OmrA-B family: a 78-nucleotide RNA from Paramixta manurensis. On this family, see Argaman et al., Curr Biol 2001: "Novel small RNA-encoding genes in the intergenic regions of Escherichia coli". The base pairs follow the family's consensus structure, which was predicted with WAR. The match comes from Rfam's covariance-model search (77 bits).

[Rfam]
RNA sequence: CCCAGAGGUAUUGAUGGGUGAACAUCAAAACGUUUUUAGUUGAUUACACCAACCUGCGCAGAUGCGCAGGUUUUUUUU
Numbered sequence: 001c002c003c004a005g006a007g008g009u010a011u012u013g014a015u016g017g018g019u020g021a022a023c024a025u026c027a028a029a030a031c032g033u034u035u036u037u038a039g040u041u042g043a044u045u046a047c048a049c050c051a052a053c054c055u056g057c058g059c060a061g062a063u064g065c066g067c068a069g070g071u072u073u074u075u076u077u078u
Base pairs, nucleotide, nucleotide: 017050018049019048020047021040028035029034052071053070054069055068056067057066058065059064